[Rfam]
RNA sequence: AGUUGAGUGAUGAAAGAAAUCGUUCGGAUUCCCAAUGAUUUGUUGCAAAUAUGAUCUUACAACCAGCUACUUCUGACACUU
Numbered sequence: 001a002g003u004u005g006a007g008u009g010a011u012g013a014a015a016g017a018a019a020u021c022g023u024u025c026g027g028a029u030u031c032c033c034a035a036u037g038a039u040u041u042g043u044u045g046c047a048a049a050u051a052u053g054a055u056c057u058u059a060c061a062a063c064c065a066g067c068u069a070c071u072u073c074u075g076a077c078a079c080u081u
Base pairs, nucleotide, nucleotide: 001081002080004078005077

Shown here is an 81-nucleotide RNA from Coptis chinensis, a member of the family "Small nucleolar RNA R12". Rfam describes the family as follows. snoR12 is a C/D box small nucleolar RNA, which acts as a methylation guide for 25S ribosomal RNA in plants. snoR12 has been alternatively named snoZ44 in Arabidopsis and snoZ131 in rice. By type it is a C/D-box small nucleolar RNA. Its family is annotated with RNA processing and nucleolus in the Gene Ontology. On this family, see Chen et al., Nucleic Acids Res 2003: "The high diversity of snoRNAs in plants: identification and comparative study of 120 snoRNA genes from Oryza sativa".